[Rfam]
RNA: Bacterial RNase P class A
Organism: Nocardiopsis eucommiae
RNA sequence: GGAGUCGGCCAGACGGUCGCGGACCCGCGCCCGGCGCGGGUUCGAGGAAAGUCCGGACUCCACAGGGCAGGGUGGUCGGUAACGCCGACCCGGGGUGACCCGCGGGACAGUGCCACAGAAAACAGACCGCCACCGCUCGCGGUGGUAAGGGUGAAACGGUGGUGUAAGAGACCACCAGCGGCCGGAGCGAUCCGGCUGGCUAGGUAAACCCCACCCGGAGCAAGGUCAAAAGGGAACCUUCGGGUUCCCGCGCGGAUGUUCGAGGGCGGCCCGCCCGAGUUCGCGGGUAGACCGCACCGAGGUCGUCGGCAACGACGGCCCCAGAUGGAUGACCGUCCGGUCCCAGGACCGACAGAAUCCGGCUUACCGGCCGACUCCCUCU
Numbered sequence: 001g002g003a004g005u006c007g008g009c010c011a012g013a014c015g016g017u018c019g020c021g022g023a024c025c026c027g028c029g030c031c032c033g034g035c036g037c038g039g040g041u042u043c044g045a046g047g048a049a050a051g052u053c054c055g056g057a058c059u060c061c062a063c064a065g066g067g068c069a070g071g072g073u074g075g076u077c078g079g080u081a082a083c084g085c086c087g088a089c090c091c092g093g094g095g096u097g098a099c100c101c102g103c104g105g106g107a108c109a110g111u112g113c114c115a116c117a118g119a120a121a122a123c124a125g126a127c128c129g130c131c132a133c134c135g136c137u138c139g140c141g142g143u144g145g146u147a148a149g150g151g152u153g154a155a156a157c158g159g160u161g162g163u164g165u166a167a168g169a170g171a172c173c174a175c176c177a178g179c180g181g182c183c184g185g186a187g188c189g190a191u192c193c194g195g196c197u198g199g200c201u202a203g204g205u206a207a208a209c210c211c212c213a214c215c216c217g218g219a220g221c222a223a224g225g226u227c228a229a230a231a232g233g234g235a236a237c238c239u240u241c242g243g244g245u246u247c248c249c250g251c252g253c254g255g256a257u258g259u260u261c262g263a264g265g266g267c268g269g270c271c272c273g274c275c276c277g278a279g280u281u282c283g284c285g286g287g288u289a290g291a292c293c294g295c296a297c298c299g300a301g302g303u304c305g306u307c308g309g310c311a312a313c314g315a316c317g318g319c320c321c322c323a324g325a326u327g328g329a330u331g332a333c334c335g336u337c338c339g340g341u342c343c344c345a346g347g348a349c350c351g352a353c354a355g356a357a358u359c360c361g362g363c364u365u366a367c368c369g370g371c372c373g374a375c376u377c378c379c380u381c382u
Stems, first nucleotide, its partner, number of pairs: 001378010012337007020044009049365003053362005058220004065272004070216005075089005090104001091102004105211002110209002112205003127150002129146007158176006178200001179198008224293004232284001234282004264276004301320008